[Rfam]
RNA: mir-2011 microRNA precursor family
Organism: Saccoglossus kowalevskii
RNA sequence: UUUAUUUCAAUGCGGUCACUGUCACACCUUAAGGUGUCAAAAUUAAAUUACACCAAGGUGUGUUAGUGAUGACAUUGCAAUAGA
Numbered sequence: 001u002u003u004a005u006u007u008c009a010a011u012g013c014g015g016u017c018a019c020u021g022u023c024a025c026a027c028c029u030u031a032a033g034g035u036g037u038c039a040a041a042a043u044u045a046a047a048u049u050a051c052a053c054c055a056a057g058g059u060g061u062g063u064u065a066g067u068g069a070u071g072a073c074a075u076u077g078c079a080a081u082a083g084a
Stems, first nucleotide, its partner, number of pairs: 001084006008077005015070007023062008033054005